Shown here is an 80-nucleotide RNA from Alternaria atra, a member of the family "tRNA". The family's consensus secondary structure is taken from published work. It scores 52 bits against the family's covariance model. Rfam classes the family as a transfer RNA. Lineage of the source: Eukaryota > Dikarya > Dothideomycetes > Pleosporales > Alternaria sect. Ulocladioides.
[Rfam]
Nucleotides: 080
Stems, first nucleotide, its partner, number of pairs: 001079007010026003028050005056072005
Number, partner (000 for none) and nucleotide at each position: 001079g002078g003077c004076u005075c006074g007073a008000u009000g010026g011025u012024g013000u014000a015000g016000u017000u018000g019000g020000u021000u022000a023000u024012c025011a026010c027000g028050u029049u030048c031047g032046c033000c034000u035000c036000a037000c038000a039000u040000g041000a042000g043000u044000a045000c046032g047031c048030g049029a050028a051000a052000g053000g054000u055000c056072g057071c058070g059069a060068g061000u062000u063000c064000g065000a066000g067000c068060c069059u070058c071057g072056c073007u074006u075005g076004a077003g078002u079001c080000a